[Rfam]
RNA sequence: UUGCAGUCGGCAAGUCCUACACAACCAGCUCCUGCUUAAUCCUCCAGGUCGGGAACGAAGCAAAGGUACGUGGUCGUAGCGGUGUGAUGUAGGUAGCUUGCCUUUUU
Numbered sequence: 001u002u003g004c005a006g007u008c009g010g011c012a013a014g015u016c017c018u019a020c021a022c023a024a025c026c027a028g029c030u031c032c033u034g035c036u037u038a039a040u041c042c043u044c045c046a047g048g049u050c051g052g053g054a055a056c057g058a059a060g061c062a063a064a065g066g067u068a069c070g071u072g073g074u075c076g077u078a079g080c081g082g083u084g085u086g087a088u089g090u091a092g093g094u095a096g097c098u099u100g101c102c103u104u105u106u107u
Base pairs, nucleotide, nucleotide: 009102010101011100012099013098014097015096017092018091019090020089021088022086023085024083025082
Bacteroidales small SRP: a 107-nucleotide RNA sequence from Formosa sp. Hel1_31_208.
It scores 96 bits against the family's covariance model.
Clan: SRP clan.